[Rfam]
Nucleotides: 403
Stems, first nucleotide, its partner, number of pairs: 001399005007393004011388001012347007020045001022043007050386003054383005059246004068305002071242003075239001076105004106131001107129004132238002137236001139232002154177002156173007185203002188200003205227001206225005212219002250327004260318006300311004
Number, partner (000 for none) and nucleotide at each position: 001399a002398a003397c004396c005395g006000c007393a008392a009391g010390u011388g012347u013346g014345c015344a016343g017342u018341c019000g020045c021000c022043g023042u024041g025040c026039a027038g028037c029000c030000c031000a032000u033000c034000c035000g036000g037028g038027c039026u040025g041024u042023g043022c044000a045020g046000a047000g048000g049000a050386a051385a052384g053000u054383c055382c056381g057380a058379a059246c060245u061244u062243c063000a064000c065000a066000g067000g068305g069304c070000a071242g072241g073240g074000u075239g076105c077104c078103g079102g080000u081000c082000g083000a084000g085000a086000g087000u088000u089000g090000c091000a092000a093000a094000a095000c096000u097000c098000a099000a100000g101000c102079c103078c104077g105076g106131g107129g108128a109127u110126a111000a112000c113000g114000g115000c116000g117000c118000a119000a120000g121000c122000c123000g124000c125000u126110u127109g128108u129107c130000a131106c132238a133237g134000a135000a136000a137236g138000c139232g140231c141000a142000a143000c144000a145000g146000a147000a148000a149000a150000c151000a152000g153000a154177c155176c156173g157172c158171u159170u160169c161168g162167g163000g164000c165000a166000a167162c168161c169160g170159g171158a172157g173156u174000a175000a176155g177154g178000g179000u180000g181000a182000a183000a184000c185203g186202g187000g188200g189199g190198u191000g192000u193000a194000a195000g196000a197000g198190a199189c200188c201000a202186c203185c204000a205227g206225a207224c208223a209222u210221g211000a212219c213218a214000g215000u216000a217000a218213u219212g220000g221210c222209a223208u224207g225206u226000g227205c228000u229000u230000g231140g232139c233000a234000a235000a236137c237133c238132u239075c240073c241072c242071c243062g244061a245060a246059g247000c248000a249000a250327g251326g252325c253324u254000a255000a256000a257000u258000a259000a260318g261317a262316g263315g264314a265313c266000u267000u268000u269000u270000c271000c272000c273000c274000c275000a276000g277000g278000g279000g280000a281000a282000a283000a284000a285000g286000a287000g288000c289000g290000g291000c292000c293000c294000g295000u296000u297000c298000a299000a300311u301310u302309c303308c304069g305068c306000a307000a308303g309302g310301a311300g312000a313265g314264u315263u316262c317261u318260c319000g320000g321000g322000u323000a324253a325252g326251c327250c328000g329000c330000a331000u332000c333000a334000g335000a336000u337000a338000a339000a340000u341018g342017g343016c344015u345014g346013c347012a348000g349000u350000c351000u352000u353000a354000c355000c356000c357000g358000g359000u360000c361000u362000c363000c364000g365000g366000g367000u368000a369000a370000u371000u372000c373000a374000c375000a376000g377000a378000a379058u380057u381056c382055g383054g384052c385051u386050u387000a388011u389000a390010g391009c392008u393007u394000a395005c396004g397003g398002u399001u400000u401000c402000a403000g
This 403-nucleotide RNA from Pelodictyon phaeoclathratiforme belongs to the Rfam family "Bacterial RNase P class A". The base pairs follow the family's consensus structure, which is taken from published work. Its Rfam clan is "RNaseP clan". Rfam's curators put it in the seed alignment. Ribonuclease P (RNase P) is a ubiquitous endoribonuclease, found in archaea, bacteria and eukarya as well as chloroplasts and mitochondria. Taxonomically the source falls in Pelodictyon phaeoclathratiforme (Bacteria, Pseudomonadati, Chlorobiia, Chlorobiaceae). The family's RNA type in Rfam is ribozyme.